[Rfam]
RNA sequence: AGCAGAGUAGAACUGAAUGCGUAAAGUGCUAUUUGAACAGGGAGUUGACAAAUAGACGAAAAGCAAAGCUUGCGGUGUUCGGUUCGCAUCCCGCUGCU
Numbered sequence: 001a002g003c004a005g006a007g008u009a010g011a012a013c014u015g016a017a018u019g020c021g022u023a024a025a026g027u028g029c030u031a032u033u034u035g036a037a038c039a040g041g042g043a044g045u046u047g048a049c050a051a052a053u054a055g056a057c058g059a060a061a062a063g064c065a066a067a068g069c070u071u072g073c074g075g076u077g078u079u080c081g082g083u084u085c086g087c088a089u090c091c092c093g094c095u096g097c098u
Base pairs, nucleotide, nucleotide: 001098002097003096004095005094010085011084012083013082014081015080016079017078018077019076020074021073022072026057027056029055030054031053032052033051034050035049040091041090042089044087061071062070063069064068
Rfam assigns this 98-nucleotide sequence from Catenisphaera adipataccumulans to the family "THF (Tetrahydrofolate) riboswitch aptamer". The family has 101 seed sequences and 747 matches in Rfam 15.1. Rfam links the family to the GO term tetrahydrofolate metabolic process. It scores 90 bits against the family's covariance model. For this family Rfam cites "A eubacterial riboswitch class that senses the coenzyme tetrahydrofolate" (Ames et al., Chem Biol, 2010). The base pairs follow the family's consensus structure, which is taken from published work.